[Rfam]
RNA sequence: GGGUCCGGCGGGCCACUGACCUCCCCAAAGAACCGAGGGAAAGAACUACCCGCCCACCCACCCACCCCGGCCGGGAGGCCCACGUCACCCGUCCGAGUGACCGGUUUGCAGGUGCGGGAUGCGGACGGCUACGUUCGCCGCGACAACCGCACAAAGACUUCGGCCCUCGGCCGGGACGGCAAUCCCGAACGAGGGCCUGACCGAUCAGGAAGAAGCACCUUCCCG
Numbered sequence: 001g002g003g004u005c006c007g008g009c010g011g012g013c014c015a016c017u018g019a020c021c022u023c024c025c026c027a028a029a030g031a032a033c034c035g036a037g038g039g040a041a042a043g044a045a046c047u048a049c050c051c052g053c054c055c056a057c058c059c060a061c062c063c064a065c066c067c068c069g070g071c072c073g074g075g076a077g078g079c080c081c082a083c084g085u086c087a088c089c090c091g092u093c094c095g096a097g098u099g100a101c102c103g104g105u106u107u108g109c110a111g112g113u114g115c116g117g118g119a120u121g122c123g124g125a126c127g128g129c130u131a132c133g134u135u136c137g138c139c140g141c142g143a144c145a146a147c148c149g150c151a152c153a154a155a156g157a158c159u160u161c162g163g164c165c166c167u168c169g170g171c172c173g174g175g176a177c178g179g180c181a182a183u184c185c186c187g188a189a190c191g192a193g194g195g196c197c198u199g200a201c202c203g204a205u206c207a208g209g210a211a212g213a214a215g216c217a218c219c220u221u222c223c224c225g
Stems, first nucleotide, its partner, number of pairs: 007205001009203002011072004085100004090095001108139001111136002162197005168191002173186004208223005
Record summary: The family of this 225-nucleotide sequence from Streptomyces sp. MA5143a is "Streptomyces sRNA 4677". The pairing is the family consensus, mapped onto this sequence. Located in the intergenic region between anti-sigma factor SCO4677 gene and a putative regulatory protein gene SCO4676. scr4677 expression requires the SCO4677 activity and scr4677 sRNA itself seem to affect the levels of the SCO4676-associated transcripts. A search with the family's covariance model found it, with a score of 73 bits.